[Rfam]
RNA: mir-3015 microRNA precursor family
Organism: Acyrthosiphon pisum
RNA sequence: GUUUUUACAAUGUCCGGUAAAGUGUCGGUUAACGCUAACCGGAUAUUGUAAGAACGG
Dot-bracket structure: (((((((((((.((((((.(...((......))..).)))))).)))))))))))..